A member of the RNA family "Betaproteobacteria toxic small RNA" from Paraburkholderia sacchari, 64 nucleotides long. Rfam's curators write: Overexpression in amino aid rich medium attenuates growth, suggesting role in repressing amino acid intake and metabolism. Pairs were carried over by alignment from the consensus structure, which was predicted with WAR. A search with the family's covariance model found it, with a score of 68 bits. For this family Rfam cites "Identification of small RNAs abundant in Burkholderia cenocepacia biofilms reveal putative regulators with a potential role in carbon and iron metabolism" (Sass et al., Sci Rep, 2017). The source organism's lineage runs through Bacteria, Pseudomonadati, Pseudomonadota, Burkholderiales and Paraburkholderia.
RNA sequence: UGUCUCCUCCACCCUCCUCCAAGAGGUGGAUUAAGCCCGAGCAAACGCGUUCGGGCUUUUUUUC
Numbered sequence: 001u002g003u004c005u006c007c008u009c010c011a012c013c014c015u016c017c018u019c020c021a022a023g024a025g026g027u028g029g030a031u032u033a034a035g036c037c038c039g040a041g042c043a044a045a046c047g048c049g050u051u052c053g054g055g056c057u058u059u060u061u062u063u064c
Stems, first nucleotide, its partner, number of pairs: 008030006014023001034057008